[Rfam]
RNA sequence: GUAGUCGUGGCCGAGUGGUUAAGGCGAUGGACUUCAAAUCCAUUGGGGUCUCCCCGCGCAGGUUUGAAUCCUGCCGACUAC
Number, nucleotide and partner (000 for none) at each position: 001g081002u080003a079004g078005u077006c076007g075008u000009g074010g025011c024012c023013g000014a000015g020016u000017g000018g000019u000020u015021a000022a000023g012024g011025c010026g044027a043028u042029g041030g040031a039032c000033u000034u000035c000036a000037a000038a000039u031040c030041c029042a028043u027044u026045g000046g055047g054048g053049u000050c000051u000052c000053c048054c047055c046056g000057c000058g000059c073060a072061g071062g070063u000064u000065u000066g000067a000068a000069u000070c062071c061072u060073g059074c009075c007076g006077a005078c004079u003080a002081c001

The record is an 81-nucleotide sequence, which matches "Selenocysteine transfer RNA" in Rfam. Rfam's curators put it in the seed alignment. Rfam 15.1 lists 4,211 matches to the family in 3,344 species. Gene Ontology term of the family: triplet codon-amino acid adaptor activity. For this family Rfam cites "Eukaryotic selenocysteine tRNA has the 9/4 secondary structure" (Mizutani and Goto, FEBS Lett, 2000). Pairs were carried over by alignment from the consensus structure, which is taken from published work.